The record is a 137-nucleotide RNA from Actinoplanes derwentensis, which matches "c-di-AMP riboswitch aptamer (ydaO/yuaA leader)" in Rfam. Rfam's curators write: This family represents a conserved RNA structure found upstream of the ydaO and yuaA genes in Bacillus subtilis and related genes in other bacteria. Taxonomically the source falls in Actinoplanes (Bacteria, Bacillati, Actinomycetes, Micromonosporales).

[Rfam]
RNA sequence: CGGGAGCCGCCGCCUAAUCGUCAUCAAUGACGAGCCGGGGAUCCAUUUUCCCUCGGGGUGAAUCCGCACCCAGCGGUAGGGAUUUCCUUCGUCCCGAACCCGUCAGCUAACUCGGUCGGCGGCCGACGGAAGGAAAU
Numbered sequence: 001c002g003g004g005a006g007c008c009g010c011c012g013c014c015u016a017a018u019c020g021u022c023a024u025c026a027a028u029g030a031c032g033a034g035c036c037g038g039g040g041a042u043c044c045a046u047u048u049u050c051c052c053u054c055g056g057g058g059u060g061a062a063u064c065c066g067c068a069c070c071c072a073g074c075g076g077u078a079g080g081g082a083u084u085u086c087c088u089u090c091g092u093c094c095c096g097a098a099c100c101c102g103u104c105a106g107c108u109a110a111c112u113c114g115g116u117c118g119g120c121g122g123c124c125g126a127c128g129g130a131a132g133g134a135a136a137u
Stems, first nucleotide, its partner, number of pairs: 011121004018033006034116006044055001056101003064076004079095004